azaaromatic riboswitch aptamer (yjdF RNA): a 115-nucleotide RNA sequence from Diplocloster agilis.
RNA sequence: AGCUGCAAAGAUAAAAACACAGUCCCGGUAGGUAGUCCGGGCGCAGCGGAAGAUAUCUGUGAGACCGCUGUCAGUAACCUUCCUCCUUAGGUCGUCCGUUCUUUGCUUAUUUCUA
Numbered sequence: 001a002g003c004u005g006c007a008a009a010g011a012u013a014a015a016a017a018c019a020c021a022g023u024c025c026c027g028g029u030a031g032g033u034a035g036u037c038c039g040g041g042c043g044c045a046g047c048g049g050a051a052g053a054u055a056u057c058u059g060u061g062a063g064a065c066c067g068c069u070g071u072c073a074g075u076a077a078c079c080u081u082c083c084u085c086c087u088u089a090g091g092u093c094g095u096c097c098g099u100u101c102u103u104u105g106c107u108u109a110u111u112u113c114u115a
Stems, first nucleotide, its partner, number of pairs: 005106007022042002025040004043071006082091003
A search with the family's covariance model found it, with a score of 85 bits.